RNA sequence: GCUUCCGAAUUGAACUGUGGCGUUCAUCGCCGCUUUCCUGAAAAGGAUAGAUUCAGAAGUUCUU
Numbered sequence: 001g002c003u004u005c006c007g008a009a010u011u012g013a014a015c016u017g018u019g020g021c022g023u024u025c026a027u028c029g030c031c032g033c034u035u036u037c038c039u040g041a042a043a044a045g046g047a048u049a050g051a052u053u054c055a056g057a058a059g060u061u062c063u064u
Stems, first nucleotide, its partner, number of pairs: 001060005007054005017033006036047004

A member of the RNA family "DUF3800-IX RNA", 64 nucleotides long. Rfam describes the family as follows. Actinobacteria, Firmicutes (1 example), Nitrospirae, Proteobacteria, Verrucomicrobia (1 example). Rfam's curators put it in the seed alignment.